[Rfam]
Annotation
This 227-nucleotide part of an RNA from Paralcaligenes ureilyticus belongs to the Rfam family "Bacterial large subunit ribosomal RNA". A search with the family's covariance model found it, with a score of 2806 bits.
RNA sequence: GACUUACAUUCAGUGGCAAGCUUAACCGAAUAGGGGAGGCGUAGCGAAAGCGAGUCCGAAUAGGGCGUUUAGUCGCUGGGUGUAGACCCGAAACCAGGCGAUCUAUCCAUGGUCAGGUUGAAGGCACGGUAACACGUGCUGGAGGACCGAACCCACUAAUGUUGAAAAAUUAGGGGAUGAACUGUGGAUAGGGGUGAAAGGCUAAACAAGCCUGGAAAUAGCUGGUU
Number, nucleotide and partner (000 for none) at each position: 001g000002a000003c000004u000005u084006a083007c082008a081009u080010u079011c078012a077013g076014u075015g074016g073017c072018a000019a000020g040021c039022u038023u037024a000025a000026c034027c033028g000029a000030a000031u000032a000033g027034g026035g000036g000037a023038g022039g021040c020041g000042u000043a000044g051045c050046g000047a000048a000049a000050g045051c044052g000053a000054g066055u065056c064057c063058g000059a000060a000061u000062a000063g057064g056065g055066c054067g000068u000069u000070u000071a000072g017073u016074c015075g014076c013077u012078g011079g010080g009081u008082g007083u006084a005085g000086a000087c225088c224089c000090g222091a000092a000093a000094c215095c214096a213097g212098g211099c210100g000101a000102u000103c191104u190105a189106u188107c187108c186109a185110u184111g183112g182113u181114c179115a000116g148117g147118u146119u145120g000121a000122a000123g140124g139125c138126a137127c136128g135129g000130u000131a000132a000133c000134a000135c128136g127137u126138g125139c124140u123141g000142g000143a000144g000145g119146a118147c117148c116149g000150a000151a000152c176153c175154c174155a000156c173157u172158a171159a170160u169161g000162u000163u000164g000165a000166a000167a000168a000169a160170u159171u158172a157173g156174g154175g153176g152177a000178u000179g114180a000181a113182c112183u111184g110185u109186g108187g107188a106189u105190a104191g103192g000193g203194g202195u201196g000197a000198a000199a000200g000201g195202c194203u193204a000205a000206a000207c000208a000209a000210g099211c098212c097213u096214g095215g094216a000217a000218a000219u000220a000221g000222c090223u000224g088225g087226u000227u000